Source information: This 31-nucleotide RNA belongs to the Rfam family "L31-Coriobacteria ribosomal protein leader". Clan: Ribosomal Protein L31 Leader clan. The family has 75 seed sequences and 105 matches in Rfam 15.1. It is one of the family's seed sequences. The family's consensus secondary structure is taken from published work.

RNA sequence: GUCUUGGUCGGAAACCAAGACCGCAAAGGAG
Numbered sequence: 001g002u003c004u005u006g007g008u009c010g011g012a013a014a015c016c017a018a019g020a021c022c023g024c025a026a027a028g029g030a031g
Base pairs, nucleotide, nucleotide: 001021002020003019004018005017006016007015008014